[Rfam]
RNA sequence: UAGUUAGCGAUUAUUACAAAAAUAAUUCUGCGUUCUGACUUACUUAAUUUGGGCAUUACAAACCUCUUAUUACAACAUAGAAUUUGAGUUAC
Numbered sequence: 001u002a003g004u005u006a007g008c009g010a011u012u013a014u015u016a017c018a019a020a021a022a023u024a025a026u027u028c029u030g031c032g033u034u035c036u037g038a039c040u041u042a043c044u045u046a047a048u049u050u051g052g053g054c055a056u057u058a059c060a061a062a063c064c065u066c067u068u069a070u071u072a073c074a075a076c077a078u079a080g081a082a083u084u085u086g087a088g089u090u091a092c
Stems, first nucleotide, its partner, number of pairs: 003092002006090002
A member of the RNA family "Small nucleolar RNA snoR8a" from Theobroma cacao, 92 nucleotides long. By type it is a C/D-box small nucleolar RNA. The base pairs follow the family's consensus structure, which was predicted with WAR. On this family, see Brown et al., RNA 2001: "Multiple snoRNA gene clusters from Arabidopsis".